The record is a 174-nucleotide RNA sequence from Planococcus halotolerans, which matches "Lysine riboswitch aptamer" in Rfam. It scores 111 bits against the family's covariance model. Pairs were carried over by alignment from the consensus structure, which is taken from published work. From the family's description: Riboswitches are metabolite binding domains within certain messenger RNAs that serve as precision sensors for their corresponding targets. Allosteric rearrangement of mRNA structure is mediated by ligand binding, and this results in modulation of gene expression. This family includes riboswitches that sense lysine in a number of genes involved in lysine metabolism, including lysC.
RNA sequence: AGUGGUGAUAGAGGCGCGGGCGUCAAAAGUAGCCAUCCGGAGAUUUGCAGAAUCUGUGAAGGAUGAGGAAAGGGACGACCGCCGAAGUGUGUGAAGGCUGCAGCCGAACAUGCUGGUUCUGCAUUUAAGAGAUGCAGGGCUGUCAGAGUCAAACUCUGGAGGGCUAUCUCACAU
Dot-bracket structure: ......(((((....((((.((((.........(((((......................)))))........)))).))))...(((((((...(.......)...)))))))(((((((((((.....))))))))))).(((((((...)))))))....)))))......